[Rfam]
RNA sequence: GGGGGGAGGCCGGAUCCUGGGCUGUGUCCUGGCGCCCAGUGCUCCUGGGCCUGUGCUGUUGGAUUCGUGCUCCCGAGAGCUACCUCUU
Numbered sequence: 001g002g003g004g005g006g007a008g009g010c011c012g013g014a015u016c017c018u019g020g021g022c023u024g025u026g027u028c029c030u031g032g033c034g035c036c037c038a039g040u041g042c043u044c045c046u047g048g049g050c051c052u053g054u055g056c057u058g059u060u061g062g063a064u065u066c067g068u069g070c071u072c073c074c075g076a077g078a079g080c081u082a083c084c085u086c087u088u
Stems, first nucleotide, its partner, number of pairs: 001088006009080002011077001017075001019073003023069004027063003030058006039051001041050003